Rfam assigns this 153-nucleotide RNA from Desulfamplus magnetovallimortis to the family "Group II catalytic intron D1-D4-7". Group II introns are found in rRNA, tRNA and mRNA of organelles in fungi, plants and protists, and also in mRNA in bacteria. A search with the family's covariance model found it, with a score of 112 bits. The pairing is the family consensus, mapped onto this sequence. A reference for the family is Bonen and Vogel (2001), "The ins and outs of group II introns", Trends Genet. NCBI's taxonomy places the organism under Bacteria, Pseudomonadati, Thermodesulfobacteriota, Desulfobacteria, Desulfamplus. Gene Ontology term of the family: Group II intron splicing.
RNA sequence: CCUGCCGUAUCACCGGCAGUUUCUUACCUUGGCAUGCAUUACUGGUAACGAUUUUGUGUGAAGCCCAGGGGACAAUGGAGUCCUUAGCCGAAAGGCUUGGAGAGGAAACCGUGAGGUAACCUCAACUCUGGCAGCAUCAAGCUGGAUGGAAGC
Numbered sequence: 001c002c003u004g005c006c007g008u009a010u011c012a013c014c015g016g017c018a019g020u021u022u023c024u025u026a027c028c029u030u031g032g033c034a035u036g037c038a039u040u041a042c043u044g045g046u047a048a049c050g051a052u053u054u055u056g057u058g059u060g061a062a063g064c065c066c067a068g069g070g071g072a073c074a075a076u077g078g079a080g081u082c083c084u085u086a087g088c089c090g091a092a093a094g095g096c097u098u099g100g101a102g103a104g105g106a107a108a109c110c111g112u113g114a115g116g117u118a119a120c121c122u123c124a125a126c127u128c129u130g131g132c133a134g135c136a137u138c139a140a141g142c143u144g145g146a147u148g149g150a151a152g153c
Stems, first nucleotide, its partner, number of pairs: 002019006028069005033060006041052001043050002084099001086097004100123003109116002127146006
Dot-bracket structure: .((((((......))))))........(((((((((((..(.((....)).)..))))))....)))))..............(.((((....)))).)(((......((....))....)))...((((((........)))))).......